Rfam assigns this 96-nucleotide RNA sequence from Trichogramma brassicae to the family "mir-2788 microRNA precursor family". It scores 76 bits against the family's covariance model. Pairs were carried over by alignment from the consensus structure, which was predicted with RNAalifold.
[Rfam]
RNA sequence: AGUACUCGUUGUAGCAAAGUUGGGGUUUCUAUGCGGCAUGUGCCUUGCGUUCAAUCGAUGCAAUGCCCUUGGAAAUCCCAAAAAUGCACGACGCAU
Numbered sequence: 001a002g003u004a005c006u007c008g009u010u011g012u013a014g015c016a017a018a019g020u021u022g023g024g025g026u027u028u029c030u031a032u033g034c035g036g037c038a039u040g041u042g043c044c045u046u047g048c049g050u051u052c053a054a055u056c057g058a059u060g061c062a063a064u065g066c067c068c069u070u071g072g073a074a075a076u077c078c079c080a081a082a083a084a085u086g087c088a089c090g091a092c093g094c095a096u
Stems, first nucleotide, its partner, number of pairs: 008092005014087003021080009031070001033068001035067005041062003